RNA sequence: GACUAGAUGCGUGAGGGAUUGCAAUGGAAAUCCUUUUUUGUUUUUUCUUUAAAAACAAAAAAGAUUGCAAUGAAAAGCCCGACCAUAA
Numbered sequence: 001g002a003c004u005a006g007a008u009g010c011g012u013g014a015g016g017g018a019u020u021g022c023a024a025u026g027g028a029a030a031u032c033c034u035u036u037u038u039u040g041u042u043u044u045u046u047c048u049u050u051a052a053a054a055a056c057a058a059a060a061a062a063g064a065u066u067g068c069a070a071u072g073a074a075a076a077g078c079c080c081g082a083c084c085a086u087a088a
Stems, first nucleotide, its partner, number of pairs: 015080003019076002024071002029066004035061011